[Rfam]
RNA sequence: CGAGCCAUCAAAGUGGAGGUGAUCUGUUGCUAUCGUCAUAUCACAGCCAGCUUUGAUGAGCUUGG
Numbered sequence: 001c002g003a004g005c006c007a008u009c010a011a012a013g014u015g016g017a018g019g020u021g022a023u024c025u026g027u028u029g030c031u032a033u034c035g036u037c038a039u040a041u042c043a044c045a046g047c048c049a050g051c052u053u054u055g056a057u058g059a060g061c062u063u064g065g
Stems, first nucleotide, its partner, number of pairs: 006058008014049003019044004025040003
mir-2 microRNA precursor family: a 65-nucleotide sequence from Soboliphyme baturini. Gene Ontology terms of the family: RISC complex and miRNA-mediated post-transcriptional gene silencing. Pairs were carried over by alignment from the consensus structure, which was predicted with PFOLD. It scores 62 bits against the family's covariance model. The organism belongs to Soboliphyme, within Eukaryota. Rfam 15.1 lists 918 matches to the family in 280 species.